This 110-nucleotide RNA from Prunus dulcis belongs to the Rfam family "Small nucleolar RNA snoR97".
[Rfam]
RNA sequence: CUUAAUUCGAUUAGGUUUAGGGUCUGAAAAACUCAUAAAUUUUGGUGUUGUCUAUCAGCUUCGGCGCUUGUUACUGGUGGAGACUGAAGUUAAACAACAACACUACAUCU
Numbered sequence: 001c002u003u004a005a006u007u008c009g010a011u012u013a014g015g016u017u018u019a020g021g022g023u024c025u026g027a028a029a030a031a032c033u034c035a036u037a038a039a040u041u042u043u044g045g046u047g048u049u050g051u052c053u054a055u056c057a058g059c060u061u062c063g064g065c066g067c068u069u070g071u072u073a074c075u076g077g078u079g080g081a082g083a084c085u086g087a088a089g090u091u092a093a094a095c096a097a098c099a100a101c102a103c104u105a106c107a108u109c110u
Stems, first nucleotide, its partner, number of pairs: 044104007057091006065082001067080001
The base pairs follow the family's consensus structure, which was predicted with WAR. On this family, see Marker et al., Curr Biol 2002: "Experimental RNomics: identification of 140 candidates for small non-messenger RNAs in the plant Arabidopsis thaliana".